[Rfam]
RNA sequence: GCCCGGCCUAGAUCGGCCAAUCGAAAAGCGGAACCCUCGCCGCCUGACCGGGCUACUUCCAAUCAGGG
Numbered sequence: 001g002c003c004c005g006g007c008c009u010a011g012a013u014c015g016g017c018c019a020a021u022c023g024a025a026a027a028g029c030g031g032a033a034c035c036c037u038c039g040c041c042g043c044c045u046g047a048c049c050g051g052g053c054u055a056c057u058u059c060c061a062a063u064c065a066g067g068g
Base pairs, nucleotide, nucleotide: 001053002052003051004050005049006048008046011022012021013020028043029042030041031040034068035067036066037065039063
RNA: int-alpA RNA